Annotation: The record is a 124-nucleotide sequence from Gossypium trilobum, which matches "MIR7504 microRNA precursor family" in Rfam.
RNA sequence: AAUAGGAGAAUGAUAAAUCAGAUUUUUCCUUCUGAUUUUUAGUGUUUUUAGCUGAAUUUGAAUUUUUUGAGGAGGAAAAAAAUUGAAAAUCAAGAAGAAAAAUUCGAUUUGUCAUUCUCCUAUU
Number, nucleotide and partner (000 for none) at each position: 001a124002a123003u122004a121005g120006g119007a118008g117009a116010a115011u114012g113013a112014u111015a110016a109017a108018u107019c106020a000021g104022a103023u102024u101025u100026u099027u098028c000029c000030u095031u094032c000033u092034g091035a090036u089037u088038u087039u086040u000041a084042g083043u000044g000045u080046u079047u078048u077049u000050a000051g000052c000053u000054g000055a000056a000057u000058u000059u000060g000061a000062a000063u000064u000065u000066u000067u000068u000069g000070a000071g000072g000073a000074g000075g000076a000077a048078a047079a046080a045081a000082a000083u042084u041085g000086a039087a038088a037089a036090u035091c034092a033093a000094g031095a030096a000097g000098a027099a026100a025101a024102a023103u022104u021105c000106g019107a018108u017109u016110u015111g014112u013113c012114a011115u010116u009117c008118u007119c006120c005121u004122a003123u002124u001
The base pairs follow the family's consensus structure, which was predicted with RNAalifold.